A member of the RNA family "Small nucleolar RNA SNORA51" from Castor canadensis, 134 nucleotides long. About the family: ACA51 is a member of the H/ACA class of snoRNA that guide the sites of modification of uridines to pseudouridines. Gene Ontology terms of the family: RNA processing and nucleolus.
[Rfam]
RNA sequence: GUCCUCCUGGUGCUUAACCGGAAGCCGUGAUCUUACACUGACUGCAGAGAAAGAUGAGGCAAAGUUACAUGUACCCCAUAUGCACCUCAGCCCAGGCCUUGCGCCCAGCCUGCCUUGUGAAUGGGGAGUUGUGG
Number, nucleotide and partner (000 for none) at each position: 001g000002u000003c059004c058005u057006c056007c000008u054009g000010g000011u000012g000013c000014u000015u000016a000017a000018c000019c000020g000021g000022a043023a000024g000025c000026c000027g038028u037029g036030a000031u000032c000033u000034u000035a000036c029037a028038c027039u000040g000041a000042c000043u022044g000045c000046a000047g000048a000049g000050a000051a000052a000053g000054a008055u000056g006057a005058g004059g003060c000061a000062a000063a000064g000065u000066u000067a000068c000069a000070u000071g000072u000073a000074c126075c125076c124077c123078a122079u121080a000081u000082g000083c000084a000085c000086c000087u000088c112089a111090g110091c000092c108093c000094a000095g105096g104097c103098c000099u000100u000101g000102c000103g097104c096105c095106c000107a000108g092109c000110c090111u089112g088113c000114c000115u000116u000117g000118u000119g000120a000121a079122u078123g077124g076125g075126g074127a000128g000129u000130u000131g000132u000133g000134g000
The family has 9 seed sequences and 2,121 matches in Rfam 15.1. It scores 78 bits against the family's covariance model.